[Rfam]
RNA sequence: GCCGAGUUGGUUAACGUCAGCUUGUGACUCUUGUGAGGGCAAUACGGUGGUGGGAUAAUACUGAGGCUUAAUUGGGUUGGGCUUUGAUCACAAAAUGCUGGGCCUGCGCACUCCGAGUUGAGAGUUGGCCCGUAAGUUUCGUGUGCCCUAAAGUGGAGGGCACUGCGUCAGGCUGGUUUCACAGAACAGCGAGAACCUUUCUCUCUUAACAGUGGAGGGAUGUCAGGCUGCUGGAGUCACUGCCCUCUAUUUGCCUAAUUAACCUGGUUCUUAGACCAUCACCUUU
Numbered sequence: 001g002c003c004g005a006g007u008u009g010g011u012u013a014a015c016g017u018c019a020g021c022u023u024g025u026g027a028c029u030c031u032u033g034u035g036a037g038g039g040c041a042a043u044a045c046g047g048u049g050g051u052g053g054g055a056u057a058a059u060a061c062u063g064a065g066g067c068u069u070a071a072u073u074g075g076g077u078u079g080g081g082c083u084u085u086g087a088u089c090a091c092a093a094a095a096u097g098c099u100g101g102g103c104c105u106g107c108g109c110a111c112u113c114c115g116a117g118u119u120g121a122g123a124g125u126u127g128g129c130c131c132g133u134a135a136g137u138u139u140c141g142u143g144u145g146c147c148c149u150a151a152a153g154u155g156g157a158g159g160g161c162a163c164u165g166c167g168u169c170a171g172g173c174u175g176g177u178u179u180c181a182c183a184g185a186a187c188a189g190c191g192a193g194a195a196c197c198u199u200u201c202u203c204u205c206u207u208a209a210c211a212g213u214g215g216a217g218g219g220a221u222g223u224c225a226g227g228c229u230g231c232u233g234g235a236g237u238c239a240c241u242g243c244c245c246u247c248u249a250u251u252u253g254c255c256u257a258a259u260u261a262a263c264c265u266g267g268u269u270c271u272u273a274g275a276c277c278a279u280c281a282c283c284u285u286u
Base pairs, nucleotide, nucleotide: 001040002039003038004023005022006021007020008019009018010017011016028037029036030035044285046283047282048281049280050279051278052277053276056273057272058271060269062267064265065264066263069261070260071259072258073257074256075255076254077253079245080244081243082242085239086238087237089236091234094232101229102228103227104226105225106224109218111217112216113215114214115213117210118209119208120207121206122205123204124203127147128146129145131143132142133141148153155200156199157198158197159196164193166191167190168189173184174183175182